RNA: Small nucleolar RNA SNORD69
Organism: Aegotheles bennettii
RNA sequence: UACACAAAGCACAUGAUGAGAGCACUGAAACUGACUCUGCGUGAAGUGCAUUCAGUCCAACACUGAGCUUUGUGUC
Numbered sequence: 001u002a003c004a005c006a007a008a009g010c011a012c013a014u015g016a017u018g019a020g021a022g023c024a025c026u027g028a029a030a031c032u033g034a035c036u037c038u039g040c041g042u043g044a045a046g047u048g049c050a051u052u053c054a055g056u057c058c059a060a061c062a063c064u065g066a067g068c069u070u071u072g073u074g075u076c
Base pairs, nucleotide, nucleotide: 002075003074004073005072006071007070008069009068010067
Dot-bracket structure: .(((((((((........................................................))))))))).